[Rfam]
RNA sequence: CCUCUUGCGGGCCGCGGUGUGCCAGCCUAUCUUCAAUCCUGUCGGCAGCUGCCGACUAUGGUGAUAAACGCGCAGAUAAUAAGCGGUUCGGACCCGGGGGCGGUACCCGGCGGCUCCACCAAACAUCCCGUCGUUGGGGGAUCAUGGGGCCGAAAUAGGAUCGACGAACGUGUAAAACUGUUGCUUUCACCCGGUGAGGUACCACCGUUAUCGGUCCGAUAAAGCAUAAUUGCCAACGACAAUCGUGCUCCGGUUGCAGUUGCCGCCUAAGCGGUAACUAAGACCGAAAUCUGAAGCCCUGGCCUCUAGCAAGGUCAGGCGGGGUUCGCAGGCACCUGGCAACAGAAGCCUGCACU
Numbered sequence: 001c002c003u004c005u006u007g008c009g010g011g012c013c014g015c016g017g018u019g020u021g022c023c024a025g026c027c028u029a030u031c032u033u034c035a036a037u038c039c040u041g042u043c044g045g046c047a048g049c050u051g052c053c054g055a056c057u058a059u060g061g062u063g064a065u066a067a068a069c070g071c072g073c074a075g076a077u078a079a080u081a082a083g084c085g086g087u088u089c090g091g092a093c094c095c096g097g098g099g100g101c102g103g104u105a106c107c108c109g110g111c112g113g114c115u116c117c118a119c120c121a122a123a124c125a126u127c128c129c130g131u132c133g134u135u136g137g138g139g140g141a142u143c144a145u146g147g148g149g150c151c152g153a154a155a156u157a158g159g160a161u162c163g164a165c166g167a168a169c170g171u172g173u174a175a176a177a178c179u180g181u182u183g184c185u186u187u188c189a190c191c192c193g194g195u196g197a198g199g200u201a202c203c204a205c206c207g208u209u210a211u212c213g214g215u216c217c218g219a220u221a222a223a224g225c226a227u228a229a230u231u232g233c234c235a236a237c238g239a240c241a242a243u244c245g246u247g248c249u250c251c252g253g254u255u256g257c258a259g260u261u262g263c264c265g266c267c268u269a270a271g272c273g274g275u276a277a278c279u280a281a282g283a284c285c286g287a288a289a290u291c292u293g294a295a296g297c298c299c300u301g302g303c304c305u306c307u308a309g310c311a312a313g314g315u316c317a318g319g320c321g322g323g324g325u326u327c328g329c330a331g332g333c334a335c336c337u338g339g340c341a342a343c344a345g346a347a348g349c350c351u352g353c354a355c356u
Stems, first nucleotide, its partner, number of pairs: 041056005060191005070184002072181004084170002088167003094110005111152007192207004198217002201215003322337004328353006